[Rfam]
RNA sequence: CUAACUGAGCGGUAAGACCGUUCCAGGUUGUCUUAAGUGUUCCCUUCCAUCUGGUGGGCCAUAGCUUAAGCACUACGAAUCUGGAAGGCUCGCUUUUUUA
Numbered sequence: 001c002u003a004a005c006u007g008a009g010c011g012g013u014a015a016g017a018c019c020g021u022u023c024c025a026g027g028u029u030g031u032c033u034u035a036a037g038u039g040u041u042c043c044c045u046u047c048c049a050u051c052u053g054g055u056g057g058g059c060c061a062u063a064g065c066u067u068a069a070g071c072a073c074u075a076c077g078a079a080u081c082u083g084g085a086a087g088g089c090u091c092g093c094u095u096u097u098u099u100a
Stems, first nucleotide, its partner, number of pairs: 003098002009093002024083006031077001032070007043058003047054002